The family of this 46-nucleotide RNA from Luteolibacter ambystomatis is "Acido-Lenti-1 RNA". The family's consensus secondary structure is taken from published work. The family's RNA type in Rfam is small RNA. The match comes from Rfam's covariance-model search (45 bits). Taxonomically the source falls in Luteolibacter (Bacteria, Pseudomonadati, Verrucomicrobiota, Verrucomicrobiia).

[Rfam]
RNA sequence: CCGGUGGCUCGCGCCACCGGCUACCCUACGUCGCCCCUCCGGGGCU
Numbered sequence: 001c002c003g004g005u006g007g008c009u010c011g012c013g014c015c016a017c018c019g020g021c022u023a024c025c026c027u028a029c030g031u032c033g034c035c036c037c038u039c040c041g042g043g044g045c046u
Base pairs, nucleotide, nucleotide: 001020002019003018004017005016006015007014008013033045034044035043036042037041